[Rfam]
RNA sequence: GGUCUUGUGGCCUAACGGAUAAGGCGUCUGACUUCGGAUCAGAAGAUUGCAGGUUUGAGCCCUUCCAGGGUCG
Numbered sequence: 001g002g003u004c005u006u007g008u009g010g011c012c013u014a015a016c017g018g019a020u021a022a023g024g025c026g027u028c029u030g031a032c033u034u035c036g037g038a039u040c041a042g043a044a045g046a047u048u049g050c051a052g053g054u055u056u057g058a059g060c061c062c063u064u065c066c067a068g069g070g071u072c073g
Stems, first nucleotide, its partner, number of pairs: 001072007010025004027043005049065001051063003
tRNA: a 73-nucleotide RNA from Opisthorchis felineus. Pairs were carried over by alignment from the consensus structure, which is taken from published work. NCBI's taxonomy places the organism under Eukaryota, Bilateria, Protostomia, Opisthorchiidae, Opisthorchis. Rfam links the family to the GO term triplet codon-amino acid adaptor activity.